[Rfam]
RNA: Small nucleolar RNA R16
Organism: Jatropha curcas
RNA sequence: GAAGGUAGAUGAUGGAGAAAAAUCUUAUCCUACAUACUGAAUUAAAUUUUAGAUGUGGAUUAAAACUCCGCUUAUUAUCUGAUGCCUUU
Number, nucleotide and partner (000 for none) at each position: 001g000002a000003a087004g086005g085006u084007a083008g000009a000010u000011g000012a000013u000014g000015g000016a000017g000018a000019a000020a000021a000022a000023u000024c000025u000026u000027a000028u000029c000030c000031u000032a000033c000034a000035u000036a000037c000038u000039g000040a000041a000042u000043u000044a000045a000046a000047u000048u000049u000050u000051a000052g000053a000054u000055g000056u000057g000058g000059a000060u000061u000062a000063a000064a000065a000066c000067u000068c000069c000070g000071c000072u000073u000074a000075u000076u000077a000078u000079c000080u000081g000082a000083u007084g006085c005086c004087u003088u000089u000